[Rfam]
RNA sequence: UGGACAGAUUAUUGUAUUUGACUGUAUUCAAGGCGUGAAACAGGGGAUUACACUAUUUUUAAACAGAAAGUGAAUAAAUUAUCAUAAUAAACUCCU
Numbered sequence: 001u002g003g004a005c006a007g008a009u010u011a012u013u014g015u016a017u018u019u020g021a022c023u024g025u026a027u028u029c030a031a032g033g034c035g036u037g038a039a040a041c042a043g044g045g046g047a048u049u050a051c052a053c054u055a056u057u058u059u060u061a062a063a064c065a066g067a068a069a070g071u072g073a074a075u076a077a078a079u080u081a082u083c084a085u086a087a088u089a090a091a092c093u094c095c096u
Base pairs, nucleotide, nucleotide: 002095003094004093009090010089011088012087013086014085015084018081020080021079023077026075027074028073029072030071035064036063037059038058039057040056042054043053